MIR4387 microRNA precursor family: a 109-nucleotide RNA sequence from Glycine max. The match comes from Rfam's covariance-model search (91 bits).
[Rfam]
RNA sequence: AAGUACCACGUCAUCGCACCUUGUCAUUAACACAUCAUUGUCACAUCAUUGAAGGUGAUGAUGUGGUGAUGAGAUGUCUGUGACAAGGCGUGAUGACGUGGUACUCCGU
Numbered sequence: 001a002a003g004u005a006c007c008a009c010g011u012c013a014u015c016g017c018a019c020c021u022u023g024u025c026a027u028u029a030a031c032a033c034a035u036c037a038u039u040g041u042c043a044c045a046u047c048a049u050u051g052a053a054g055g056u057g058a059u060g061a062u063g064u065g066g067u068g069a070u071g072a073g074a075u076g077u078c079u080g081u082g083a084c085a086a087g088g089c090g091u092g093a094u095g096a097c098g099u100g101g102u103a104c105u106c107c108g109u
Stems, first nucleotide, its partner, number of pairs: 003104015019088003023084005030077003035072016